[Rfam]
RNA sequence: UAAGCGAUGCCGAAACCGGGUCGCUCACUACUCGCUGACUAACAGGAGAAUUAUCAUGACG
Numbered sequence: 001u002a003a004g005c006g007a008u009g010c011c012g013a014a015a016c017c018g019g020g021u022c023g024c025u026c027a028c029u030a031c032u033c034g035c036u037g038a039c040u041a042a043c044a045g046g047a048g049a050a051u052u053a054u055c056a057u058g059a060c061g
Stems, first nucleotide, its partner, number of pairs: 001027001003025006010019003031048003035045003
This 61-nucleotide RNA sequence from Pseudomonas sp. v388 belongs to the Rfam family "Repression of heat shock gene expression (ROSE) element". It scores 48 bits against the family's covariance model. On this family, see Krajewski et al., PLoS One 2013: "Short ROSE-Like RNA Thermometers Control IbpA Synthesis in Pseudomonas Species". Its family is annotated with response to temperature stimulus and regulation of translation in the Gene Ontology. It is annotated as an RNA thermoregulator.